[Rfam]
RNA sequence: UUGGCGGUGAACUCCCAGUCGCCGUCCGGCCCGGCGAGAACGUGGCCGCCGAAGGAGGCGCCGUCGGCGAGCACGCCGAGGACGGUCUCCUCGCCGUACUUGCCGGCGCCGAUCUGCUCGACCCGGCCGUGCGCGAUCAGGAAGACGUGGUCGGCGGGCCGGCCGCGCUCGACGAUGACCUGGCCGGGCUCGAACUCCUGCUGGACGAAGCGGCCGGCCAGCGCGCCGAGUGCGGUCGGGUCCUCGAAGCCGCGCAGCAGCGGCAGCUCGCCGAGCUCGGCGGGGACGACCUGGACCCGCGAGCCGGUCUUCACGAAGGUCAGCCGGCCGUCGCCGACGGCGUAGCUGAGCCUCCGGUUGACCCGGUAGGUACCGCCGGACACCUGGACCCAGGGCAGCGACUUCAGCAGCCAGCGGGAGCUGAUCUCCUGCAUCUGCGGCCGGGACUUGGUGGUGGUGGCGAGGUUGCGGGCCGCCGCCGUGCUCAGACUGAGCUGGAUCUGGUCCUG
Numbered sequence: 001u002u003g004g005c006g007g008u009g010a011a012c013u014c015c016c017a018g019u020c021g022c023c024g025u026c027c028g029g030c031c032c033g034g035c036g037a038g039a040a041c042g043u044g045g046c047c048g049c050c051g052a053a054g055g056a057g058g059c060g061c062c063g064u065c066g067g068c069g070a071g072c073a074c075g076c077c078g079a080g081g082a083c084g085g086u087c088u089c090c091u092c093g094c095c096g097u098a099c100u101u102g103c104c105g106g107c108g109c110c111g112a113u114c115u116g117c118u119c120g121a122c123c124c125g126g127c128c129g130u131g132c133g134c135g136a137u138c139a140g141g142a143a144g145a146c147g148u149g150g151u152c153g154g155c156g157g158g159c160c161g162g163c164c165g166c167g168c169u170c171g172a173c174g175a176u177g178a179c180c181u182g183g184c185c186g187g188g189c190u191c192g193a194a195c196u197c198c199u200g201c202u203g204g205a206c207g208a209a210g211c212g213g214c215c216g217g218c219c220a221g222c223g224c225g226c227c228g229a230g231u232g233c234g235g236u237c238g239g240g241u242c243c244u245c246g247a248a249g250c251c252g253c254g255c256a257g258c259a260g261c262g263g264c265a266g267c268u269c270g271c272c273g274a275g276c277u278c279g280g281c282g283g284g285g286a287c288g289a290c291c292u293g294g295a296c297c298c299g300c301g302a303g304c305c306g307g308u309c310u311u312c313a314c315g316a317a318g319g320u321c322a323g324c325c326g327g328c329c330g331u332c333g334c335c336g337a338c339g340g341c342g343u344a345g346c347u348g349a350g351c352c353u354c355c356g357g358u359u360g361a362c363c364c365g366g367u368a369g370g371u372a373c374c375g376c377c378g379g380a381c382a383c384c385u386g387g388a389c390c391c392a393g394g395g396c397a398g399c400g401a402c403u404u405c406a407g408c409a410g411c412c413a414g415c416g417g418g419a420g421c422u423g424a425u426c427u428c429c430u431g432c433a434u435c436u437g438c439g440g441c442c443g444g445g446a447c448u449u450g451g452u453g454g455u456g457g458u459g460g461c462g463a464g465g466u467u468g469c470g471g472g473c474c475g476c477c478g479c480c481g482u483g484c485u486c487a488g489a490c491u492g493a494g495c496u497g498g499a500u501c502u503g504g505u506c507c508u509g
Stems, first nucleotide, its partner, number of pairs: 006390003011385001018328002021325001024321001026319002030315001036312003040308002045305001047303001049301001050299002054233001059228002062225003065111004075103001077102004082097005118221001120219001122217002127212001130209001131206001134203002139199003143196002150191001154189002159187005166174002234296001236294002240290003244286002250282001253279002256277003260271003329342004351379002355375003361371003391431005397425001399423002403418003407415001437476004442471001444469001446467001447465003451461002478507001480503002485498004

This 509-nucleotide RNA sequence from Streptomyces sp. TLI_235 belongs to the Rfam family "Saccharopolyspora sRNA 350". A search with the family's covariance model found it, with a score of 168 bits. It is annotated as an antisense RNA. Lineage of the source: Bacteria > Actinomycetes > Kitasatosporales > Streptomycetaceae > Streptomyces. For this family Rfam cites "Prediction and characterization of small non-coding RNAs related to secondary metabolites in Saccharopolyspora erythraea" (Liu et al., PLoS One, 2013). The base pairs follow the family's consensus structure, which was predicted with RNAfold.